drz-agam-1 ribozyme: a 79-nucleotide sequence from Hermetia illucens. For this family Rfam cites "Widespread occurrence of self-cleaving ribozymes" (Webb et al., Science, 2009). A search with the family's covariance model found it, with a score of 38 bits. The base pairs follow the family's consensus structure, which is taken from published work.
Nucleotides: 079
Base pairs, nucleotide, nucleotide: 013079014078015077017075019073020072021071022034023033024032048063049061050060051059052058053057
Number, partner (000 for none) and nucleotide at each position: 001000c002000c003000a004000a005000u006000a007000c008000c009000a010000a011000a012000u013079u014078c015077u016000a017075u018000c019073u020072c021071g022034a023033c024032c025000u026000c027000c028000a029000c030000g031000u032024g033023g034022u035000g036000a037000c038000c039000g040000c041000u042000g043000g044000a045000g046000c047000u048063c049061u050060u051059u052058c053057g054000u055000a056000a057053c058052g059051a060050a061049a062000a063048g064000c065000u066000g067000c068000a069000g070000a071021c072020g073019g074000a075017g076000a077015a078014g079013g